[Rfam]
RNA sequence: AGUCGCAAGCUCAAGGCCAUAGCAGAAGCACUCAUGGUGCGGCCUGUCAGACUCCAAUGAAUCUGUGAAUUUUGCU
Numbered sequence: 001a002g003u004c005g006c007a008a009g010c011u012c013a014a015g016g017c018c019a020u021a022g023c024a025g026a027a028g029c030a031c032u033c034a035u036g037g038u039g040c041g042g043c044c045u046g047u048c049a050g051a052c053u054c055c056a057a058u059g060a061a062u063c064u065g066u067g068a069a070u071u072u073u074g075c076u
Base pairs, nucleotide, nucleotide: 015044016043017042018041021076022075023074024073025072026071027070028040029039030038048065049064050063051062053060054059
A member of the RNA family "Mammalian CPEB3 ribozyme" from Alligator mississippiensis, 76 nucleotides long. Rfam's curators write: The mammalian CPEB3 ribozyme is a self cleaving RNA located in the second intron of the CPEB3 gene which belongs to a family of genes regulating messenger RNA polyadenylation.